[Rfam]
RNA sequence: UUAUAGAAGAACUAGGGUUCCGACCGUCUAUUGAAGUCGAUGGUGUCUGGUCCGAGAGUUCUCGGUCUUGUUGAUGACAAGGCUCCACGGAGGGAUAAAAGCCCGGGAGGA
Numbered sequence: 001u002u003a004u005a006g007a008a009g010a011a012c013u014a015g016g017g018u019u020c021c022g023a024c025c026g027u028c029u030a031u032u033g034a035a036g037u038c039g040a041u042g043g044u045g046u047c048u049g050g051u052c053c054g055a056g057a058g059u060u061c062u063c064g065g066u067c068u069u070g071u072u073g074a075u076g077a078c079a080a081g082g083c084u085c086c087a088c089g090g091a092g093g094g095a096u097a098a099a100a101g102c103c104c105g106g107g108a109g110g111a
Base pairs, nucleotide, nucleotide: 008062009061010060011059012058015053016052020050021049022047023044024043025042026041027040028039064084065083066082067081068080069079070078071077086106088109092104093103094102

Record summary:
The record is a 111-nucleotide RNA sequence from Sideroxydans sp. CL21, which matches "Guanidine-I riboswitch aptamer" in Rfam. It scores 89 bits against the family's covariance model.